[Rfam]
Shown here is a 120-nucleotide RNA sequence from Actinacidiphila oryziradicis, a member of the family "Group II catalytic intron D1-D4-2". The base pairs follow the family's consensus structure. Rfam's curators write: Group II introns are found in rRNA, tRNA and mRNA of organelles in fungi, plants and protists, and also in mRNA in bacteria.
RNA sequence: GUAGCUGUUUUGGCCCUUCGGAGCCGCCCUGCGGGGGGAGGCUUCAAACCACCUCAUGCUGCAUUAGCCGAAGACUGUUGUGGUGAACGAUGAGGAAAAGGCGUCGCCAAGACGUCAGGU
Numbered sequence: 001g002u003a004g005c006u007g008u009u010u011u012g013g014c015c016c017u018u019c020g021g022a023g024c025c026g027c028c029c030u031g032c033g034g035g036g037g038g039a040g041g042c043u044u045c046a047a048a049c050c051a052c053c054u055c056a057u058g059c060u061g062c063a064u065u066a067g068c069c070g071a072a073g074a075c076u077g078u079u080g081u082g083g084u085g086a087a088c089g090a091u092g093a094g095g096a097a098a099a100g101g102c103g104u105c106g107c108c109a110a111g112a113c114g115u116c117a118g119g120u
Base pairs, nucleotide, nucleotide: 001015020045021044022043023042024041025040027038028037029036030035050119052095053094054093055092056091057090058084059083061081062080063079065077066076067075100116101115102114103113104112105111

The family has 144 seed sequences and 1,231 matches in Rfam 15.1.
Lineage of the source: Bacteria > Actinomycetes > Kitasatosporales > Streptomycetaceae > Actinacidiphila.
A reference for the family is Lehmann and Schmidt (2003), "Group II introns: structure and catalytic versatility of large natural ribozymes", Crit Rev Biochem Mol Biol.
Its family is annotated with Group II intron splicing in the Gene Ontology.